RNA: LOOT RNA
RNA sequence: UGCCUAACCCUCGUGAAUUAAAAAUUCCGAGGUAUGGCAGAAAAAUACGGUUCAGGUUAUUAAGCUCCUAGUCAGAGCACCUGAACCGUCAUAUCCGAAAGGGUAUGGGUGGCGCAAGCCAUC
Dot-bracket structure: ((((....(((((.(((((...))))))))))...))))........((((((((((......((((.......)))))))))))))).(((((((....)))))))((((((....))))))
Numbered sequence: 001u002g003c004c005u006a007a008c009c010c011u012c013g014u015g016a017a018u019u020a021a022a023a024a025u026u027c028c029g030a031g032g033u034a035u036g037g038c039a040g041a042a043a044a045a046u047a048c049g050g051u052u053c054a055g056g057u058u059a060u061u062a063a064g065c066u067c068c069u070a071g072u073c074a075g076a077g078c079a080c081c082u083g084a085a086c087c088g089u090c091a092u093a094u095c096c097g098a099a100a101g102g103g104u105a106u107g108g109g110u111g112g113c114g115c116a117a118g119c120c121a122u123c
Stems, first nucleotide, its partner, number of pairs: 001039004009032005015027005048088010064078004090107007108123006